[Rfam]
RNA sequence: GGCCGAUUAAACCCUUCCACCACCUCCUCGUGGUAUCGGCUGAUAACAAGGCCCUGAUGGACCUUGACUAACGGUGGGGG
Dot-bracket structure: ............(((((..(.(((.......)))............(((((.((....)).)))))......)..)))))
Shown here is an 80-nucleotide sequence from Sinocyclocheilus rhinocerous, a member of the family "drz-agam-1 ribozyme". The base pairs follow the family's consensus structure, which is taken from published work. For this family Rfam cites "Widespread occurrence of self-cleaving ribozymes" (Webb et al., Science, 2009). The source organism's lineage runs through Eukaryota, Vertebrata, Gnathostomata, Cypriniformes and Sinocyclocheilus.